[Rfam]
RNA sequence: CCGUCACUUGAUGUACCGUCCGAUCAACGGUAGCUCAACAUCCAUUGACGGACAACUGAAUAUCAACGGCUGCCUUUUGAGCGGGUUGCCGCAGACCGAAACGGAGAAUCUCUCUGUCGGGCUGUGGUUAAUUUUCUGCACCCUUUUUGCAGCCGAACC
Numbered sequence: 001c002c003g004u005c006a007c008u009u010g011a012u013g014u015a016c017c018g019u020c021c022g023a024u025c026a027a028c029g030g031u032a033g034c035u036c037a038a039c040a041u042c043c044a045u046u047g048a049c050g051g052a053c054a055a056c057u058g059a060a061u062a063u064c065a066a067c068g069g070c071u072g073c074c075u076u077u078u079g080a081g082c083g084g085g086u087u088g089c090c091g092c093a094g095a096c097c098g099a100a101a102c103g104g105a106g107a108a109u110c111u112c113u114c115u116g117u118c119g120g121g122c123u124g125u126g127g128u129u130a131a132u133u134u135u136c137u138g139c140a141c142c143c144u145u146u147u148u149g150c151a152g153c154c155g156a157a158c159c
Base pairs, nucleotide, nucleotide: 001051002050003049004048005047008044010042011041012040013039014032015031016030017029018028033082034081035080036079037078038077067155068154069153070152071151072150073149088128089127090126091125092124101117102116103115104114105113
Dot-bracket structure: (((((..(.(((((((((.........)))))[[[[[[)))).)..)))))...............(((((((...]]]]]].....(((((........(((((.......)))))......)))))....................)))))))....